[Rfam]
RNA sequence: CACUCCUGUUUCUGCCUCAGAUUCUUAUGUUUCCAUAGAAUUAUGGGUUCUGUUUAUGGAGAAGAUUAAGCCUGUUAACGGAGCUUGGACACUUUUGAUACAACCGUCCAUGUUCUUUUAGCAGGAUCGUGUGGUUAGAUUUGUCCGUGUGUGAUACACUCGAUAAUGGUUAGUUCCAAAUGACGAGAAAAUCUGGCAAAUCUCCACUACAUAU
Numbered sequence: 001c002a003c004u005c006c007u008g009u010u011u012c013u014g015c016c017u018c019a020g021a022u023u024c025u026u027a028u029g030u031u032u033c034c035a036u037a038g039a040a041u042u043a044u045g046g047g048u049u050c051u052g053u054u055u056a057u058g059g060a061g062a063a064g065a066u067u068a069a070g071c072c073u074g075u076u077a078a079c080g081g082a083g084c085u086u087g088g089a090c091a092c093u094u095u096u097g098a099u100a101c102a103a104c105c106g107u108c109c110a111u112g113u114u115c116u117u118u119u120a121g122c123a124g125g126a127u128c129g130u131g132u133g134g135u136u137a138g139a140u141u142u143g144u145c146c147g148u149g150u151g152u153g154a155u156a157c158a159c160u161c162g163a164u165a166a167u168g169g170u171u172a173g174u175u176c177c178a179a180a181u182g183a184c185g186a187g188a189a190a191a192u193c194u195g196g197c198a199a200a201u202c203u204c205c206a207c208u209a210c211a212u213a214u
Stems, first nucleotide, its partner, number of pairs: 003061004016047004020042006071125008080116005086110005131207004137203005153193003159187001167178003
Background
Rfam assigns this 214-nucleotide sequence from Debaryomyces hansenii to the family "Small nucleolar RNA snR43". For this family Rfam cites "The RNA world of the nucleolus: two major families of small RNAs defined by different box elements with related functions" (Balakin et al., Cell, 1996). It is one of the family's seed sequences. The base pairs follow the family's consensus structure, which is taken from published work. It is annotated as an H/ACA-box small nucleolar RNA. Rfam links the family to the GO terms RNA processing and nucleolus.